[Rfam]
RNA sequence: AUUAAUCAAAUACGAUGGUCGGGCUAAGGGUCAAGUUAGUAAUUUUUCUUACAUCUCUCCCUUCCGAAGCCCAAAUAUCAUAUACGCCGCCAAAACAAAAGGCCUUGAAUACUAGAAUAAAAGCAUCUAUACCUAACAAGAUUAAAUGAUAACUAAAACUGUGGUCAUUUUAUUUUGAUCGUUUUA
Numbered sequence: 001a002u003u004a005a006u007c008a009a010a011u012a013c014g015a016u017g018g019u020c021g022g023g024c025u026a027a028g029g030g031u032c033a034a035g036u037u038a039g040u041a042a043u044u045u046u047u048c049u050u051a052c053a054u055c056u057c058u059c060c061c062u063u064c065c066g067a068a069g070c071c072c073a074a075a076u077a078u079c080a081u082a083u084a085c086g087c088c089g090c091c092a093a094a095a096c097a098a099a100a101g102g103c104c105u106u107g108a109a110u111a112c113u114a115g116a117a118u119a120a121a122a123g124c125a126u127c128u129a130u131a132c133c134u135a136a137c138a139a140g141a142u143u144a145a146a147u148g149a150u151a152a153c154u155a156a157a158a159c160u161g162u163g164g165u166c167a168u169u170u171u172a173u174u175u176u177g178a179u180c181g182u183u184u185u186a
Stems, first nucleotide, its partner, number of pairs: 145183006153177001155174002
The family of this 186-nucleotide sequence from Capsicum baccatum is "Antisense RNA which regulates isiA expression". The source organism's lineage runs through Eukaryota, Streptophytina, Tracheophyta, Euphyllophyta and Capsicum. Pairs were carried over by alignment from the consensus structure, which was predicted with PFOLD.